[Rfam]
RNA sequence: GAGUGAAUGUAACUGGCGAGGUUAAGAGCUUAAGGCUCGGAGCCGUAGCGAGAGCGAGUCUGAAUAGGGCAUAUGAAGUCAGUUGUAUUCGACCCGAAACCGGGUGACCUACCCAUGUCCAGGUUGAAGUGGAGGUAAAACUCCAUGGAGGACCGAACCGACUCCCGUUGAAAUGGUAGCGGAUGAGGUGUGGGUAGCGGAGAAAUUCCAAUCGAACCCGGAGAUAGCUGGUU
Numbered sequence: 001g002a003g004u005g006a007a008u009g010u011a012a013c014u015g016g017c018g019a020g021g022u023u024a025a026g027a028g029c030u031u032a033a034g035g036c037u038c039g040g041a042g043c044c045g046u047a048g049c050g051a052g053a054g055c056g057a058g059u060c061u062g063a064a065u066a067g068g069g070c071a072u073a074u075g076a077a078g079u080c081a082g083u084u085g086u087a088u089u090c091g092a093c094c095c096g097a098a099a100c101c102g103g104g105u106g107a108c109c110u111a112c113c114c115a116u117g118u119c120c121a122g123g124u125u126g127a128a129g130u131g132g133a134g135g136u137a138a139a140a141c142u143c144c145a146u147g148g149a150g151g152a153c154c155g156a157a158c159c160g161a162c163u164c165c166c167g168u169u170g171a172a173a174u175g176g177u178a179g180c181g182g183a184u185g186a187g188g189u190g191u192g193g194g195u196a197g198c199g200g201a202g203a204a205a206u207u208c209c210a211a212u213c214g215a216a217c218c219c220g221g222a223g224a225u226a227g228c229u230g231g232u233u
Stems, first nucleotide, its partner, number of pairs: 005090013020044004026038003048055002058070004093231002096228001100221006109197011120185001122154004129146006158182003162179002165176002199209003
Bacterial large subunit ribosomal RNA: a 233-nucleotide part of an RNA from Acutalibacter sp. 1XD8-33. Rfam 15.1 lists 51,934 matches to the family in 10,816 species. The match comes from Rfam's covariance-model search (2775 bits).